[Rfam]
RNA sequence: CUGCCCGUAGCUCAGCUGGAUAGAGCAACGGACUUCUAAUCCGUCGGUCGGACGUUCGAAUCGUCUCGGGCAGG
Numbered sequence: 001c002u003g004c005c006c007g008u009a010g011c012u013c014a015g016c017u018g019g020a021u022a023g024a025g026c027a028a029c030g031g032a033c034u035u036c037u038a039a040u041c042c043g044u045c046g047g048u049c050g051g052a053c054g055u056u057c058g059a060a061u062c063g064u065c066u067c068g069g070g071c072a073g074g
Stems, first nucleotide, its partner, number of pairs: 001073007010026004028044005050066005